Source information:
Shown here is a 223-nucleotide RNA sequence from Bacillus sp. V3-13, a member of the family "T-box leader".
RNA sequence: AAAAUGACAAUGAGAAGGAAUAGUAAUGAUGCAGGAGCCCGUUUUAGAGAGUUGACGGAUGGUGCAAGUCAACCGGGCACAUCAUGAACUCGCCUUUCGAGUCGCAAGUGUGAAAUCGCAGUAAUACUUGCCGUUUACCGCGUUAAGGAUGAAUGAAGCGAGUGACAUGUUCACUAAUGUGGGUGGUACCGCGGGAGAUUAUACAUAUCCUCUCGUCCCUGUU
Numbered sequence: 001a002a003a004a005u006g007a008c009a010a011u012g013a014g015a016a017g018g019a020a021u022a023g024u025a026a027u028g029a030u031g032c033a034g035g036a037g038c039c040c041g042u043u044u045u046a047g048a049g050a051g052u053u054g055a056c057g058g059a060u061g062g063u064g065c066a067a068g069u070c071a072a073c074c075g076g077g078c079a080c081a082u083c084a085u086g087a088a089c090u091c092g093c094c095u096u097u098c099g100a101g102u103c104g105c106a107a108g109u110g111u112g113a114a115a116u117c118g119c120a121g122u123a124a125u126a127c128u129u130g131c132c133g134u135u136u137a138c139c140g141c142g143u144u145a146a147g148g149a150u151g152a153a154u155g156a157a158g159c160g161a162g163u164g165a166c167a168u169g170u171u172c173a174c175u176a177a178u179g180u181g182g183g184u185g186g187u188a189c190c191g192c193g194g195g196a197g198a199u200u201a202u203a204c205a206u207a208u209c210c211u212c213u214c215g216u217c218c219c220u221g222u223u
Base pairs, nucleotide, nucleotide: 007102008101015097016096017095018094026085027084028083029082030081031080039076040075041074051073052072053071054070055069056068105130106129107128108127109126110125111124132142133141134140161175162174163173164172165171181219182218183217191216192215193214194213195212196211197210
Lineage of the source: Bacteria > Bacillati > Bacillota > Bacillaceae > Bacillus. The literature on the family includes a 1994 paper in J Bacteriol by Grundy et al., "Interaction between the acceptor end of tRNA and the T box stimulates antitermination in the Bacillus subtilis tyrS gene: a new role for the discriminator base". Rfam links the family to the GO term tRNA binding.